[Rfam]
RNA sequence: GUCUUCUCACUGAGCUCCUUUCUGUCAAUCAGUGACAGUUGAGGAUUCGCACGAGAAGAAGAGAUAAUUCACGGAGCUAGCGUUGUUGCCUUCUGUCUUCACAGAGGCCUAUUAAGCUGUUUUGUGAGACAUUC
Numbered sequence: 001g002u003c004u005u006c007u008c009a010c011u012g013a014g015c016u017c018c019u020u021u022c023u024g025u026c027a028a029u030c031a032g033u034g035a036c037a038g039u040u041g042a043g044g045a046u047u048c049g050c051a052c053g054a055g056a057a058g059a060a061g062a063g064a065u066a067a068u069u070c071a072c073g074g075a076g077c078u079a080g081c082g083u084u085g086u087u088g089c090c091u092u093c094u095g096u097c098u099u100c101a102c103a104g105a106g107g108c109c110u111a112u113u114a115a116g117c118u119g120u121u122u123u124g125u126g127a128g129a130c131a132u133u134c
Base pairs, nucleotide, nucleotide: 003058004057005056006055007054008053014050015049016045017044018043022038023037024036025035026034069127070126071125072124073123074122090107091106092105093104094103095102
The family of this 134-nucleotide RNA sequence from Bos grunniens is "Small nucleolar RNA SNORA75". By type it is an H/ACA-box small nucleolar RNA. The family has 6 seed sequences and 414 matches in Rfam 15.1. The literature on the family includes a 1997 paper in Genes Dev by Ganot et al., "The family of box ACA small nucleolar RNAs is defined by an evolutionarily conserved secondary structure and ubiquitous sequence elements essential for RNA accumulation". From the family's description: U23 belongs to the H/ACA class of snoRNAs. snoRNAs bind a number of proteins (including dyskerin, Gar1p and Nop10p in the case of the H/ACA class) to form snoRNP complexes. This class are thought to guide the sites of modification of uridines to pseudouridines by forming direct base pairing interactions with substrate RNAs.